Rfam assigns this 102-nucleotide sequence from Citrobacter sp. JGM124 to the family "TPP riboswitch aptamer (THI element)". It scores 66 bits against the family's covariance model. Its family is annotated with thiamine pyrophosphate binding in the Gene Ontology.
RNA sequence: UCCAGCUCAACGGGGUGCCAGGACAAGUUGUUCGCGCUGAGAAAAUACCCGUCGAACCUGAUCCGGAUAACGCCGGCGAAGGGAUUUGAGACUGUUCAGUCG
Numbered sequence: 001u002c003c004a005g006c007u008c009a010a011c012g013g014g015g016u017g018c019c020a021g022g023a024c025a026a027g028u029u030g031u032u033c034g035c036g037c038u039g040a041g042a043a044a045a046u047a048c049c050c051g052u053c054g055a056a057c058c059u060g061a062u063c064c065g066g067a068u069a070a071c072g073c074c075g076g077c078g079a080a081g082g083g084a085u086u087u088g089a090g091a092c093u094g095u096u097c098a099g100u101c102g
Base pairs, nucleotide, nucleotide: 006090007089008088009087010086011051012050013049014048016045017037018036021033022032023031024030057082058081059080063076064075065074066073